[Rfam]
RNA: Plastid-rps12 3UTR RNA
RNA sequence: GGUUUUUUGGUUGGUAGAAAUCCAAUCACCUCAAUUUACAAUUUAAGAUGAGACAAAUUUCCCCAUUGGUAGCAAAUGCUUACCUAUUAAGCGGGGGAAAUCCUUU
Numbered sequence: 001g002g003u004u005u006u007u008u009g010g011u012u013g014g015u016a017g018a019a020a021u022c023c024a025a026u027c028a029c030c031u032c033a034a035u036u037u038a039c040a041a042u043u044u045a046a047g048a049u050g051a052g053a054c055a056a057a058u059u060u061c062c063c064c065a066u067u068g069g070u071a072g073c074a075a076a077u078g079c080u081u082a083c084c085u086a087u088u089a090a091g092c093g094g095g096g097g098a099a100a101u102c103c104u105u106u
Stems, first nucleotide, its partner, number of pairs: 011025004061096004065087002068084005